Shown here is a 303-nucleotide RNA sequence from Lactuca saligna, a member of the family "Plant signal recognition particle RNA". For this family Rfam cites "Towards the structure of the mammalian signal recognition particle" (Wild et al., Curr Opin Struct Biol, 2002). It is annotated as a non-coding RNA gene. Taxonomically the source falls in Lactuca (Eukaryota, Magnoliopsida, Mesangiospermae, Lactucinae).
RNA sequence: ACCGGGCUUGGUUGCGCUUGCCUAUAACCCAAGUGGGGGUAUCAAAGUGGGUCGGACUGUGAUUUGGGUCAAAUCGGUUGGGUCUGCUGUGCAAUAUCUGGCUUGCCCGUUCCAAGUCGAGAGUUGAUUUAUGUGGCUUGAGCGAAGGCUUGGGUCACUUGGAGCUUAGAGUAGGGGACAACGCGUUAGGCUGGCUUCACAGAGCUGCGAUAACCCCUCGCUCCCGACAGUGGAAGGAUUACAAGCCUCGGCUCUUCAGUCCCAUCUAGCCGGCUGCUCUCAAUCAAAUGGACACCCACUUUU
Dot-bracket structure: (((((((..(......)..))))....(((....))))))...(((((((((.(..(..(..((.(((...(.(((((((((.(((..(.(........((((((.((.(((((.((((.((((.(.((((.(((((((((((....))))))))))).)))).)(....).(((((......(((....(((......)))....)))....))))).)))).))))..)))))))....))))))....).)..))).)))....)))))).)..))).))...)..)..)))))))))).